[Rfam]
RNA sequence: GCCACUCUGGAAAGCAGGCGUCGGACACGCCUCGCCGAUGGUGUAAGCCGGUCGUGCGCCGGUGAAUCUCUCAGGCUCGGGACAGAGGGGGAUCG
Numbered sequence: 001g002c003c004a005c006u007c008u009g010g011a012a013a014g015c016a017g018g019c020g021u022c023g024g025a026c027a028c029g030c031c032u033c034g035c036c037g038a039u040g041g042u043g044u045a046a047g048c049c050g051g052u053c054g055u056g057c058g059c060c061g062g063u064g065a066a067u068c069u070c071u072c073a074g075g076c077u078c079g080g081g082a083c084a085g086a087g088g089g090g091g092a093u094c095g
Stems, first nucleotide, its partner, number of pairs: 002090002005087005016032004034076003037072002041070001043068001047063006

This 95-nucleotide RNA from Pseudonocardia autotrophica belongs to the Rfam family "Glycine riboswitch aptamer". Its family is annotated with glycine biosynthetic process in the Gene Ontology. The source organism's lineage runs through Bacteria, Bacillati, Actinomycetota, Actinomycetes and Pseudonocardia.